[Rfam]
Background
This 122-nucleotide RNA from Mesorhizobium sanjuanii belongs to the Rfam family "rpsB sRNA".

RNA sequence: CACACACGGACUUUGGUGUCUGCCCGGGAGAAAUCCGGGCUGAAACCUCCGGUGGCAUUCGAGGACAUCAGUCCAAAAAUGCCUGUGUCCGUGGAGGCUAACCGGAAAGGAACUUGAGAAUG
Number, nucleotide and partner (000 for none) at each position: 001c096002a000003c094004a000005c093006a092007c091008g090009g089010a088011c087012u000013u000014u000015g047016g046017u000018g000019u000020c000021u000022g000023c037024c000025c000026g035027g000028g000029a000030g000031a000032a000033a000034u000035c026036c000037g023038g000039g000040c000041u000042g000043a000044a000045a000046c016047c015048u000049c000050c000051g000052g000053u000054g083055g082056c081057a080058u079059u078060c000061g000062a000063g000064g000065a000066c000067a000068u000069c000070a000071g000072u000073c000074c000075a000076a000077a000078a059079a058080u057081g056082c055083c054084u000085g000086u000087g011088u010089c009090c008091g007092u006093g005094g003095a000096g001097g000098c000099u000100a000101a000102c000103c000104g000105g000106a000107a000108a000109g000110g000111a000112a000113c000114u000115u000116g000117a000118g000119a000120a000121u000122g000
Rfam classes the family as a small RNA.
It scores 44 bits against the family's covariance model.